[Rfam]
RNA sequence: CGGAGUGGUCCUGAUAGUCGCUGCCGUGCAAACGGGAGAGGAAAGUCCGGGCUCCACAGGGCAAGACGCUGGAUAACGUCCAGUUGGCGCGAGCCACAGGAAAGUGCAACAGAGAGCAGACCGCCCGGUUUCCGCACCGGGUCAAGGUGAAAGGGUGGGGUAAGAGCCCACCGGACGACAGGCGACUGUCGUGCCUGGCAAACCCCGUCUGGAGCAAGAUCGAAUAGGGAGGGCCGAGGCUGCCCGCUGACCUCCGGGUACAGAUCGCUCGAGACAUGCAGCAAUGCAUGUUCUAGAUAAAUGACUAUCCCAGACAGAACCCGGCUUACGGGCCACUCCGUCAU
Numbered sequence: 001c002g003g004a005g006u007g008g009u010c011c012u013g014a015u016a017g018u019c020g021c022u023g024c025c026g027u028g029c030a031a032a033c034g035g036g037a038g039a040g041g042a043a044a045g046u047c048c049g050g051g052c053u054c055c056a057c058a059g060g061g062c063a064a065g066a067c068g069c070u071g072g073a074u075a076a077c078g079u080c081c082a083g084u085u086g087g088c089g090c091g092a093g094c095c096a097c098a099g100g101a102a103a104g105u106g107c108a109a110c111a112g113a114g115a116g117c118a119g120a121c122c123g124c125c126c127g128g129u130u131u132c133c134g135c136a137c138c139g140g141g142u143c144a145a146g147g148u149g150a151a152a153g154g155g156u157g158g159g160g161u162a163a164g165a166g167c168c169c170a171c172c173g174g175a176c177g178a179c180a181g182g183c184g185a186c187u188g189u190c191g192u193g194c195c196u197g198g199c200a201a202a203c204c205c206c207g208u209c210u211g212g213a214g215c216a217a218g219a220u221c222g223a224a225u226a227g228g229g230a231g232g233g234c235c236g237a238g239g240c241u242g243c244c245c246g247c248u249g250a251c252c253u254c255c256g257g258g259u260a261c262a263g264a265u266c267g268c269u270c271g272a273g274a275c276a277u278g279c280a281g282c283a284a285u286g287c288a289u290g291u292u293c294u295a296g297a298u299a300a301a302u303g304a305c306u307a308u309c310c311c312a313g314a315c316a317g318a319a320c321c322c323g324g325c326u327u328a329c330g331g332g333c334c335a336c337u338c339c340g341u342c343a344u
Stems, first nucleotide, its partner, number of pairs: 001340010013309007021038002024035004043327003047324005052214004059245004064210005069083005084098001085096004099205002104203002106199002121146001123142007154172006173194001175192007218266004228255005238248003273292008